[Rfam]
RNA sequence: AUCGGUAAUCGCUUGAGAGCGCUGGAAGGCUUCUGCCGCUCGCGAUGGCCGCCAUCACCUGAUGACCUUGACCACGGAUGUACUGGCACUGGUGAAUAGGUGAUGAUGAGGAAGGUCGGUGCGUUUUCGCCCCGGCCUUUUUUGUU
Numbered sequence: 001a002u003c004g005g006u007a008a009u010c011g012c013u014u015g016a017g018a019g020c021g022c023u024g025g026a027a028g029g030c031u032u033c034u035g036c037c038g039c040u041c042g043c044g045a046u047g048g049c050c051g052c053c054a055u056c057a058c059c060u061g062a063u064g065a066c067c068u069u070g071a072c073c074a075c076g077g078a079u080g081u082a083c084u085g086g087c088a089c090u091g092g093u094g095a096a097u098a099g100g101u102g103a104u105g106a107u108g109a110g111g112a113a114g115g116u117c118g119g120u121g122c123g124u125u126u127u128c129g130c131c132c133c134g135g136c137c138u139u140u141u142u143u144g145u146u
Base pairs, nucleotide, nucleotide: 003051004050005049006048008046009045010044017041018040019039020038021037054104055103056102057101058100059099060098063094064093066091069088070087072086073085074084106145107144108143109142110141111140112139113138114137115136116135117134118133119132121130122129123128
RNA: Alphaproteobacterial sRNA ar35